[Rfam]
RNA sequence: UGGAAGUGCCUUUCUUGAACUGGACUGGUUUGUGCGUGAAGAACAUCAAUCAUCCCAGUUCAGGGGGCGCUUUCUUUAUUUCGACACGCCGCUACCCGCCGGGGGCAUCGGUGGAUUCAG
Numbered sequence: 001u002g003g004a005a006g007u008g009c010c011u012u013u014c015u016u017g018a019a020c021u022g023g024a025c026u027g028g029u030u031u032g033u034g035c036g037u038g039a040a041g042a043a044c045a046u047c048a049a050u051c052a053u054c055c056c057a058g059u060u061c062a063g064g065g066g067g068c069g070c071u072u073u074c075u076u077u078a079u080u081u082c083g084a085c086a087c088g089c090c091g092c093u094a095c096c097c098g099c100c101g102g103g104g105g106c107a108u109c110g111g112u113g114g115a116u117u118c119a120g
Base pairs, nucleotide, nucleotide: 002074003073004072005071006070007069008068009067010066011065012064013063016062017061018060020058021057022056023055026052027051028050029049033045034044101118102117103116106113107112
RNA: Actinobacteria sRNA Ms_IGR-7